[Rfam]
This 80-nucleotide sequence from Endozoicomonas montiporae belongs to the Rfam family "Group II catalytic intron D1-D4-1". A search with the family's covariance model found it, with a score of 61 bits. Lineage of the source: Bacteria > Pseudomonadota > Gammaproteobacteria > Endozoicomonadaceae > Endozoicomonas. Group II introns are found in rRNA, tRNA and mRNA of organelles in fungi, plants and protists, and also in mRNA in bacteria.

RNA sequence: CUGAGGUCACCGUAAGGUGAUUUGAUCGCCAUACAGAAGUCAGCAGACGGCAUAGUAGCUGGCGCAUGUCAGUGAAGGCC
Numbered sequence: 001c002u003g004a005g006g007u008c009a010c011c012g013u014a015a016g017g018u019g020a021u022u023u024g025a026u027c028g029c030c031a032u033a034c035a036g037a038a039g040u041c042a043g044c045a046g047a048c049g050g051c052a053u054a055g056u057a058g059c060u061g062g063c064g065c066a067u068g069u070c071a072g073u074g075a076a077g078g079c080c
Base pairs, nucleotide, nucleotide: 004023005022006021007020008019009018010017011016039048040047041046049080050079051078058073059072060071061070062069063068